The family of this 145-nucleotide RNA from Hymenoscyphus fraxineus is "Group II catalytic intron D1-D4-7". The organism belongs to Hymenoscyphus, within Eukaryota. Rfam's curators write: Group II introns are found in rRNA, tRNA and mRNA of organelles in fungi, plants and protists, and also in mRNA in bacteria. It scores 58 bits against the family's covariance model.
[Rfam]
RNA sequence: CCAGGAUUGUCCUAUCCUGUCCCUAUCUAGACAUGCGUCCGAAGUAAUUUGGGGGUCUGAAGCUCUAGAGACAAUGGCUGCGGCUUAGGGAAAAUGUAAACUAUGGUAAACGAGAGUGAAGAUAUGGUUGAGGUUUCGUAAAAGG
Numbered sequence: 001c002c003a004g005g006a007u008u009g010u011c012c013u014a015u016c017c018u019g020u021c022c023c024u025a026u027c028u029a030g031a032c033a034u035g036c037g038u039c040c041g042a043a044g045u046a047a048u049u050u051g052g053g054g055g056u057c058u059g060a061a062g063c064u065c066u067a068g069a070g071a072c073a074a075u076g077g078c079u080g081c082g083g084c085u086u087a088g089g090g091a092a093a094a095u096g097u098a099a100a101c102u103a104u105g106g107u108a109a110a111c112g113a114g115a116g117u118g119a120a121g122a123u124a125u126g127g128u129u130g131a132g133g134u135u136u137c138g139u140a141a142a143a144g145g
Stems, first nucleotide, its partner, number of pairs: 002019006027068005032059002035056002038053006085099003089095001101127004110117002